Annotation
The family of this 120-nucleotide sequence is "LOOT RNA".
RNA sequence: UGCCUAACCCUCGGGAGAGAUCCUGAGAUAUGGCACAAAUCCAUCCCUGAUACUGAACCCUUCGUUCAGCAACCAGGGAUGGCUGUAUCCAGAAAUGGGUAUGGGCGGUCGAAAGACUGC
Numbered sequence: 001u002g003c004c005u006a007a008c009c010c011u012c013g014g015g016a017g018a019g020a021u022c023c024u025g026a027g028a029u030a031u032g033g034c035a036c037a038a039a040u041c042c043a044u045c046c047c048u049g050a051u052a053c054u055g056a057a058c059c060c061u062u063c064g065u066u067c068a069g070c071a072a073c074c075a076g077g078g079a080u081g082g083c084u085g086u087a088u089c090c091a092g093a094a095a096u097g098g099g100u101a102u103g104g105g106c107g108g109u110c111g112a113a114a115g116a117c118u119g120c
Stems, first nucleotide, its partner, number of pairs: 001035004010027006041082009053069006084103008105120006
Description: The family's RNA type in Rfam is small RNA.